[Rfam]
Rfam assigns this 252-nucleotide RNA sequence from Trifolium subterraneum to the family "MIR2655 microRNA precursor family". The base pairs follow the family's consensus structure, which was predicted with RNAalifold. It scores 131 bits against the family's covariance model. Rfam 15.1 lists 892 matches to the family in 5 species.

RNA sequence: CCUUCAUCUUUUAAAAGUUUUAAGUUGGUCCCUUAUCUUUUUUUUAGGUUUCAAGUUGGUCCCUUCCGUCAAUUUUUUUACUGUUACCAUUAAAUUUAUACACGUGUCAUCUGUCCAAGUGUGCCACGUGUCCAAAUUAGUUUGCCACGUGUCCAAAUUUAACGGAAAUAGUUAAAAAAUUGACGGAAUGGACCAACUUGAAACCUAAAAAAAAGAUAAGGGACCAACUUGAAACUUUUAAAAGAUAAGGCA
Numbered sequence: 001c002c003u004u005c006a007u008c009u010u011u012u013a014a015a016a017g018u019u020u021u022a023a024g025u026u027g028g029u030c031c032c033u034u035a036u037c038u039u040u041u042u043u044u045u046a047g048g049u050u051u052c053a054a055g056u057u058g059g060u061c062c063c064u065u066c067c068g069u070c071a072a073u074u075u076u077u078u079u080a081c082u083g084u085u086a087c088c089a090u091u092a093a094a095u096u097u098a099u100a101c102a103c104g105u106g107u108c109a110u111c112u113g114u115c116c117a118a119g120u121g122u123g124c125c126a127c128g129u130g131u132c133c134a135a136a137u138u139a140g141u142u143u144g145c146c147a148c149g150u151g152u153c154c155a156a157a158u159u160u161a162a163c164g165g166a167a168a169u170a171g172u173u174a175a176a177a178a179a180u181u182g183a184c185g186g187a188a189u190g191g192a193c194c195a196a197c198u199u200g201a202a203a204c205c206u207a208a209a210a211a212a213a214a215g216a217u218a219a220g221g222g223a224c225c226a227a228c229u230u231g232a233a234a235c236u237u238u239u240a241a242a243a244g245a246u247a248a249g250g251c252a
Stems, first nucleotide, its partner, number of pairs: 002250003006246003023229003027225003031221013045207003